Notes: This 36-nucleotide RNA from Puia dinghuensis belongs to the Rfam family "DUF805b RNA". Rfam classes the family as a cis-regulatory element. NCBI's taxonomy places the organism under Bacteria, Bacteroidota, Chitinophagia, Chitinophagales, Puia. It scores 44 bits against the family's covariance model. The family's consensus secondary structure is taken from published work.
RNA sequence: CAUGGGGAAGCCGAAAACCAUUUAUUAGAGUAGGCA
Dot-bracket structure: .((((....[[[.....))))...........]]].
Numbered sequence: 001c002a003u004g005g006g007g008a009a010g011c012c013g014a015a016a017a018c019c020a021u022u023u024a025u026u027a028g029a030g031u032a033g034g035c036a
Stems, first nucleotide, its partner, number of pairs: 002021004010035003